[Rfam]
RNA: DUF2800 RNA
RNA sequence: CCGCUAUCCAUCGCAUCGUCUGAUCUACGAUGGCUCAACAGUGAAUAGCGGACAAGUAAAUAAACACAGCGCCUAUUGAGCGGGUUGCUGCAAUCCGAAACGGAGAGAUUCGUUUGGACUGCGGUUUGCUUUUUUGCACCCAUUUUGCAUUGGCACU
Dot-bracket structure: [[[[[.[.[[[.[(((((.........)))))((((((].]]].].]]]]]...............[[[.[[...)))))).....(((((........(((((....))))).......))))).....................]].]]].....